[Rfam]
RNA sequence: AUUCGACAAACGCAAAGGUGCCUAAAAAACACUGGCGCAAAGCUAAAGGGGCUAAAGUGAUUGGUUGAUCCUUCAUAAUGCCAAACAGCUAUCGAG
Numbered sequence: 001a002u003u004c005g006a007c008a009a010a011c012g013c014a015a016a017g018g019u020g021c022c023u024a025a026a027a028a029a030c031a032c033u034g035g036c037g038c039a040a041a042g043c044u045a046a047a048g049g050g051g052c053u054a055a056a057g058u059g060a061u062u063g064g065u066u067g068a069u070c071c072u073u074c075a076u077a078a079u080g081c082c083a084a085a086c087a088g089c090u091a092u093c094g095a096g
Stems, first nucleotide, its partner, number of pairs: 012038002017033004023028001041090004048086001050082003057076004
A member of the RNA family "c-di-GMP-I riboswitch aptamer" from Metabacillus arenae, 96 nucleotides long. From the family's description: GEMM was predicted in a large-scale screen for bacterial structured RNA regulatory elements. Genes associated with GEMM are involved in a diverse array of functions, including chemotaxis regulation, signal transduction, secretion and chitin. It scores 37 bits against the family's covariance model. NCBI's taxonomy places the organism under Bacteria, Bacillati, Caryophanales, Bacillaceae, Metabacillus.